[Rfam]
RNA sequence: CAGUUGCCUAGUGAUUGCAACACGAAAAGCGGAACCGUGACCGCCUGACAGCUGUUUUUAUAUAAAUCACGG
Numbered sequence: 001c002a003g004u005u006g007c008c009u010a011g012u013g014a015u016u017g018c019a020a021c022a023c024g025a026a027a028a029g030c031g032g033a034a035c036c037g038u039g040a041c042c043g044c045c046u047g048a049c050a051g052c053u054g055u056u057u058u059u060a061u062a063u064a065a066a067u068c069a070c071g072g
Stems, first nucleotide, its partner, number of pairs: 001054006008047001011023003029044004035072006
The record is a 72-nucleotide sequence, which matches "int-alpA RNA" in Rfam. Rfam classes the family as a small RNA. The family's consensus secondary structure is taken from published work. Rfam's curators put it in the seed alignment. About the family: Acidobacteria (1 example), Planctomycetes (1 example), Proteobacteria.